[Rfam]
RNA sequence: CUCCCCGAAAUGUAUUUAGGUACAGCGUUAUGACAAGUUUACUGGAGGUAGAGCUACUGAUAGGAUGCGGGGGAUUCAACUCCUACCAAUUCCUGACAAACUCCGAAUGCCAGUAAAUGUUUCAUAGCAGUGAGGGCAUGGGUGCUAAGGUCCAUGUCCGAGAGGGAAAGAACCCAGAAUAUCAGCUAAGGUCCCAAAAUGUAUGUUAAGUUGAUUAAACGCGGUUGGAUUGCAUAGACAGCUAGGAUGUUGGCUUGGAAGCAGCCAUUCAUUUAAAGAGUGCGUAACAGCUCACUAGUCGAGCGAUCCGGCAUGGAUAAUGAUCGGGCAUAAACAUACUACCGAAGCUAUAUCAUCUGUAAAGAUGGGUAGGGGAGCAUUCUAUACUGGGUAGAAGCGGUGUUGUAAGGCAUUGUGGACUGUAUAGAAAAGAAAAU
Numbered sequence: 001c002u003c004c005c006c007g008a009a010a011u012g013u014a015u016u017u018a019g020g021u022a023c024a025g026c027g028u029u030a031u032g033a034c035a036a037g038u039u040u041a042c043u044g045g046a047g048g049u050a051g052a053g054c055u056a057c058u059g060a061u062a063g064g065a066u067g068c069g070g071g072g073g074a075u076u077c078a079a080c081u082c083c084u085a086c087c088a089a090u091u092c093c094u095g096a097c098a099a100a101c102u103c104c105g106a107a108u109g110c111c112a113g114u115a116a117a118u119g120u121u122u123c124a125u126a127g128c129a130g131u132g133a134g135g136g137c138a139u140g141g142g143u144g145c146u147a148a149g150g151u152c153c154a155u156g157u158c159c160g161a162g163a164g165g166g167a168a169a170g171a172a173c174c175c176a177g178a179a180u181a182u183c184a185g186c187u188a189a190g191g192u193c194c195c196a197a198a199a200u201g202u203a204u205g206u207u208a209a210g211u212u213g214a215u216u217a218a219a220c221g222c223g224g225u226u227g228g229a230u231u232g233c234a235u236a237g238a239c240a241g242c243u244a245g246g247a248u249g250u251u252g253g254c255u256u257g258g259a260a261g262c263a264g265c266c267a268u269u270c271a272u273u274u275a276a277a278g279a280g281u282g283c284g285u286a287a288c289a290g291c292u293c294a295c296u297a298g299u300c301g302a303g304c305g306a307u308c309c310g311g312c313a314u315g316g317a318u319a320a321u322g323a324u325c326g327g328g329c330a331u332a333a334a335c336a337u338a339c340u341a342c343c344g345a346a347g348c349u350a351u352a353u354c355a356u357c358u359g360u361a362a363a364g365a366u367g368g369g370u371a372g373g374g375g376a377g378c379a380u381u382c383u384a385u386a387c388u389g390g391g392u393a394g395a396a397g398c399g400g401u402g403u404u405g406u407a408a409g410g411c412a413u414u415g416u417g418g419a420c421u422g423u424a425u426a427g428a429a430a431a432g433a434a435a436a437u
Base pairs, nucleotide, nucleotide: 001377002376003375004374005373006372011024012023013022014021015020026130027128028127029126030125031124032123033122036121037118038117039116040115041114042113043112044111045110051104052102053101058098059097062094063093064092065091069087070086071084072083073082074081134159135158136157137156138155139154140153141152142151143150164175165174166173179353180352181351182350184349185348186347190343191342192341199340201339202338203337204336205335206334220315221314224312225311226310227309228308229307230306231305232304233303241299242298243297244296245295247272248271249270252266253265254264273277278293282291283290354367355366356365357364358363378432380429381428382427383426384425385424386423388422389421390420397416398415399414400413401412402411403410404409